[Rfam]
RNA sequence: ACACCGGCCCUUCUCAGGGCCACCCAUCAUUUCACAAAAGGAGUGA
Numbered sequence: 001a002c003a004c005c006g007g008c009c010c011u012u013c014u015c016a017g018g019g020c021c022a023c024c025c026a027u028c029a030u031u032u033c034a035c036a037a038a039a040g041g042a043g044u045g046a
Stems, first nucleotide, its partner, number of pairs: 006021006
A member of the RNA family "Histone 3' UTR stem-loop" from Octodon degus, 46 nucleotides long. The family's consensus secondary structure is taken from published work. NCBI's taxonomy places the organism under Eukaryota, Teleostomi, Amniota, Euarchontoglires, Octodon. Rfam's curators write: The mRNAs of metazoan histone genes lack a poly-A tail. 3' end processing occurs at a site between a highly conserved stem-loop (modelled by this family) and a purine rich region around 20 nts downstream (the histone downstream element, or HDE). The stem-loop is bound by a 31 kDa stem-loop binding protein (SLBP - also termed the histone hairpin binding protein, or HBP). Together with U7 snRNA binding of the HDE, SLBP binding nucleate s the formation of the processing complex.